[Rfam]
RNA sequence: GCGCCCCUAUCUCCGCCCAUCCGGCCGCCACGUGGCAGCCAUGCGAGGGCCUCGGGGUAACGC
Numbered sequence: 001g002c003g004c005c006c007c008u009a010u011c012u013c014c015g016c017c018c019a020u021c022c023g024g025c026c027g028c029c030a031c032g033u034g035g036c037a038g039c040c041a042u043g044c045g046a047g048g049g050c051c052u053c054g055g056g057g058u059a060a061c062g063c
Base pairs, nucleotide, nucleotide: 001061005057006056007055008054015050016049017048018047020043023040024039025038028035029034

Shown here is a 63-nucleotide RNA sequence from Oryza meridionalis, a member of the family "MIR2907 microRNA precursor family".
Gene Ontology terms of the family: RISC complex and miRNA-mediated post-transcriptional gene silencing.
The literature on the family includes a 2010 paper in Genomics by Jian et al., "Identification of novel stress-regulated microRNAs from Oryza sativa L".
A search with the family's covariance model found it, with a score of 68 bits.
The base pairs follow the family's consensus structure, which was predicted with RNAalifold.
Taxonomically the source falls in Oryza (Eukaryota, Streptophyta, Embryophyta, Tracheophyta).